Background: Plastid-psbA-4 3UTR RNA: a 60-nucleotide sequence from Hydrangea serrata. Taxonomically the source falls in Hydrangea sect. Macrophyllae (Eukaryota, Streptophyta, Magnoliopsida, Gunneridae). Rfam's curators put it in the seed alignment. For this family Rfam cites "Retrograde signaling in plants: A critical review focusing on the GUN pathway and beyond" (Richter et al., Plant Commun, 2023). Plastid psbA-4 is a non-coding RNA (ncRNA) present in plastids. It was identified in inverted repeat sequences in the 3 prime untranslate region (3UTR) of photosystem II quinone-binding protein (psbA).

[Rfam]
RNA sequence: AAAGAAAGGAGCAAUACCGCCCUCUUGAUAAAACAAGAAAUUGGUUAUUGCUCCUUUACU
Numbered sequence: 001a002a003a004g005a006a007a008g009g010a011g012c013a014a015u016a017c018c019g020c021c022c023u024c025u026u027g028a029u030a031a032a033a034c035a036a037g038a039a040a041u042u043g044g045u046u047a048u049u050g051c052u053c054c055u056u057u058a059c060u
Stems, first nucleotide, its partner, number of pairs: 005057012023038005